Rfam assigns this 148-nucleotide RNA sequence from Monilinia fructigena to the family "Group II catalytic intron D1-D4-7".
The base pairs follow the family's consensus structure.
The family has 244 seed sequences and 1,296 matches in Rfam 15.1.
The match comes from Rfam's covariance-model search (53 bits).
Rfam describes the family as follows. Group II introns are found in rRNA, tRNA and mRNA of organelles in fungi, plants and protists, and also in mRNA in bacteria.
RNA sequence: CGAAACUUUUCUCUGUUUAGACUCUGAUAGCACAUGCACCGAAGUAAUUUGAGUGUGUGAAGCUGCUAUGACAAUGUACCCUACUUAGAUGAAAAUUUUGUUAAGGAAAAAUAAUAAAUAUGAAUAGAAUACUAUCUUUACUAAAUGG
Numbered sequence: 001c002g003a004a005a006c007u008u009u010u011c012u013c014u015g016u017u018u019a020g021a022c023u024c025u026g027a028u029a030g031c032a033c034a035u036g037c038a039c040c041g042a043a044g045u046a047a048u049u050u051g052a053g054u055g056u057g058u059g060a061a062g063c064u065g066c067u068a069u070g071a072c073a074a075u076g077u078a079c080c081c082u083a084c085u086u087a088g089a090u091g092a093a094a095a096u097u098u099u100g101u102u103a104a105g106g107a108a109a110a111a112u113a114a115u116a117a118a119u120a121u122g123a124a125u126a127g128a129a130u131a132c133u134a135u136c137u138u139u140a141c142u143a144a145a146u147g148g
Stems, first nucleotide, its partner, number of pairs: 003018004028068005033059007040051004085100001087098004101118002104115001122141001124139001126137002
Dot-bracket structure: ..((((........)))).........((((((((((((((((....)))).)))))))....)))))................(.((((....)))).)((.(..........).))...(.(.((........)).).).......